[Rfam]
RNA sequence: GCCUCCUGUGCCUACUGAGCUGAAACACAGUGGAUUUGUGCAGACUGGCUCAGUUCAGCAGGAACAGGAG
Number, nucleotide and partner (000 for none) at each position: 001g000002c000003c070004u069005c068006c067007u000008g065009u064010g000011c062012c061013u060014a000015c058016u057017g056018a055019g054020c053021u052022g051023a050024a000025a000026c000027a000028c047029a046030g045031u044032g000033g000034a000035u000036u000037u000038g000039u000040g000041c000042a000043g000044a031045c030046u029047g028048g000049c000050u023051c022052a021053g020054u019055u018056c017057a016058g015059c000060a013061g012062g011063a000064a009065c008066a000067g006068g005069a004070g003